RNA sequence: UAGAUUUAUGAAACGGUUCCUCAUAUAUAGUUGGGAAUAUGGCCCAAAAGUUUCUACCCGAUAACCGUAAAUUAUUGGACUAUGAGGGAAGGAAUCAACCUG
Numbered sequence: 001u002a003g004a005u006u007u008a009u010g011a012a013a014c015g016g017u018u019c020c021u022c023a024u025a026u027a028u029a030g031u032u033g034g035g036a037a038u039a040u041g042g043c044c045c046a047a048a049a050g051u052u053u054c055u056a057c058c059c060g061a062u063a064a065c066c067g068u069a070a071a072u073u074a075u076u077g078g079a080c081u082a083u084g085a086g087g088g089a090a091g092g093a094a095u096c097a098a099c100c101u102g
Stems, first nucleotide, its partner, number of pairs: 018088008031047005058078007
Notes: The family of this 102-nucleotide sequence from Metabacillus arenae is "Purine riboswitch aptamer". Rfam describes the family as follows. Riboswitches are metabolite binding domains within certain messenger RNAs that serve as precision sensors for their corresponding targets.